About this RNA: Shown here is a 123-nucleotide RNA from Gossypium australe, a member of the family "MIR7504 microRNA precursor family". Its family is annotated with miRNA-mediated post-transcriptional gene silencing and RISC complex in the Gene Ontology. Pairs were carried over by alignment from the consensus structure, which was predicted with RNAalifold.
RNA sequence: AAUGGGAGAAUGACAAAUCAGAUUUUUCUUCCUGAUUUUUAAUGUUUUUAGUUUGAAUUGAAUUUGUUCAGGAGGAAAAGGCUAAAAAUCAGGAGGAAAAAUCUGAUUUUUCAUUUUCUCAUU
Numbered sequence: 001a002a003u004g005g006g007a008g009a010a011u012g013a014c015a016a017a018u019c020a021g022a023u024u025u026u027u028c029u030u031c032c033u034g035a036u037u038u039u040u041a042a043u044g045u046u047u048u049u050a051g052u053u054u055g056a057a058u059u060g061a062a063u064u065u066g067u068u069c070a071g072g073a074g075g076a077a078a079a080g081g082c083u084a085a086a087a088a089u090c091a092g093g094a095g096g097a098a099a100a101a102u103c104u105g106a107u108u109u110u111u112c113a114u115u116u117u118c119u120c121a122u123u
Stems, first nucleotide, its partner, number of pairs: 001123013015109013029095011041083001045079004